[Rfam]
This 81-nucleotide RNA from Panthera leo belongs to the Rfam family "Small nucleolar RNA SNORD115". Taxonomically the source falls in Panthera (Eukaryota, Mammalia, Eutheria, Feliformia). The family has 32 seed sequences and 3,387 matches in Rfam 15.1.
RNA sequence: GGGCCAAUGAUUAGAACUCAUAUGGUCUCAAAGAGAGAUGAUGAUCUAAGAAUUACGCUCAGAAGGAUUAUGCUGAGGUCC
Numbered sequence: 001g002g003g004c005c006a007a008u009g010a011u012u013a014g015a016a017c018u019c020a021u022a023u024g025g026u027c028u029c030a031a032a033g034a035g036a037g038a039u040g041a042u043g044a045u046c047u048a049a050g051a052a053u054u055a056c057g058c059u060c061a062g063a064a065g066g067a068u069u070a071u072g073c074u075g076a077g078g079u080c081c
Stems, first nucleotide, its partner, number of pairs: 001081004005075002008072002
For this family Rfam cites "Identification of brain-specific and imprinted small nucleolar RNA genes exhibiting an unusual genomic organization" (Cavaille et al., Proc Natl Acad Sci U S A, 2000). The family's RNA type in Rfam is C/D-box small nucleolar RNA. It scores 74 bits against the family's covariance model.